[Rfam]
RNA sequence: GCCCGGGCCACGCCCCCCCACCGGGGCGCAUCCGCUUCUGGAAGGGAGCACACG
Number, nucleotide and partner (000 for none) at each position: 001g000002c000003c000004c000005g000006g000007g000008c000009c000010a000011c028012g027013c026014c025015c024016c023017c000018c000019c000020a000021c000022c000023g016024g015025g014026g013027c012028g011029c000030a000031u000032c000033c000034g049035c048036u047037u046038c045039u044040g000041g000042a000043a000044g039045g038046g037047a036048g035049c034050a000051c000052a000053c000054g000
Rfam assigns this 54-nucleotide RNA from Neoroseomonas alkaliterrae to the family "serC leader". By type it is a cis-regulatory leader. A reference for the family is Corbino et al. (2005), "Evidence for a second class of S-adenosylmethionine riboswitches and other regulatory RNA motifs in alpha-proteobacteria", Genome Biol. Rfam's curators write: This family is a putative regulatory RNA structure that is found upstream of the serC-serA operon in some alpha-proteobacteria. The final stem of the structure overlaps the ribosome binding site of the serC reading frame. NCBI's taxonomy places the organism under Bacteria, Pseudomonadati, Pseudomonadota, Acetobacteraceae, Neoroseomonas.